[Rfam]
RNA: Clostridiales-1 RNA
Organism: Clostridiales bacterium CHKCI001
RNA sequence: UAUGAAAGUGUCGUCAAUGGACAAUCAGGCAGGGGAUUUAUCCCCUGUGCUGAUUGGACAUUAGACGACCUGACUCGUAUGAGCAAGUAAGGCAUUUGCCUGGAUUGCGAAUACGGGGAGCGAUGUCGAGAGUGCAUGGCACGAAGACAUCAGCUUUCUUA
Dot-bracket structure: ((.(((...((((..((((..(((((((...(((((....)))))....)))))))..))))...))))....(((((((..((((...((((....))))...))))..)))))))....((((((....((((...))))...))))))....))).))